[Rfam]
RNA sequence: AGUUGAGGCCACAGCCCUUCUUAUUUUUGUGUAUAAUUUGUUACGUUUACAUUUAUUUUUAAAUUAGCGUUAUGAAAAUAUCAGUACUACUGAAAUAGCACUUCUUCGCUUCGUGUAUUUUUACUAUGGUUAAUUAUCACAUAGCGCAAACGGUCAUUUGUGUAUCACUAUUCAUAAGAUUAACUAUUUACCAGUGGUAAUAAAAAUAAAAGUAAGUCAAUGGACAACAACAAUACUGAAACUCUAAAUGUUGAUAUUUUGAGUCAUGCCGUUACAAACAAAUACGAUAUUCUUAAUUGCACUACUCCCUUUUCGGGGUAGUUUUAUAGAAGG
Dot-bracket structure: .((((......))))((((((.......(((((..(((((((.((((...(((((....))))).))))(((((......(((((...)))))...(((........)))....(((....)))...(((.....))).)))))((((((......))))))...............................((((((.........................................((((.(((((....))))).))))..))))))....)))))))..............)))))((((((......)))))).......))))))
RNA: Salmonella enterica sRNA STnc170